[Rfam]
Nucleotides: 118
Base pairs, nucleotide, nucleotide: 011026012025013024014023015022016021028051029050030049033046034045036042037041088105089104090103091102092101093100094099
Number, partner (000 for none) and nucleotide at each position: 001000u002000a003000a004000g005000u006000a007000a008000a009000g010000a011026a012025g013024a014023a015022a016021c017000a018000g019000c020000c021016g022015u023014u024013u025012c026011u027000c028051a029050c030049c031000u032000u033046a034045c035000a036042g037041c038000a039000u040000u041037g042036c043000u044000a045034g046033u047000u048000a049030g050029g051028u052000u053000a054000c055000u056000u057000a058000u059000c060000c061000c062000g063000u064000a065000a066000a067000u068000a069000u070000u071000u072000u073000u074000g075000u076000u077000u078000g079000g080000a081000u082000a083000a084000a085000a086000a087000g088105g089104a090103c091102g092101g093100c094099u095000a096000u097000c098000a099094a100093g101092u102091c103090g104089u105088c106000c107000u108000u109000u110000u111000a112000u113000u114000g115000u116000g117000u118000u
Rfam assigns this 118-nucleotide RNA sequence from Clostridium intestinale to the family "Ribosomal protein L20 leader". By type it is a cis-regulatory leader. A reference for the family is Zengel and Lindahl (1994), "Diverse mechanisms for regulating ribosomal protein synthesis in Escherichia coli", Prog Nucleic Acid Res Mol Biol. NCBI's taxonomy places the organism under Bacteria, Bacillati, Bacillota, Clostridium, Clostridium intestinale. This family is a putative r-protein leader autoregulatory structure found in B. subtilis and other low-GC Gram-positive bacteria. It scores 72 bits against the family's covariance model. Gene Ontology term of the family: regulation of gene expression.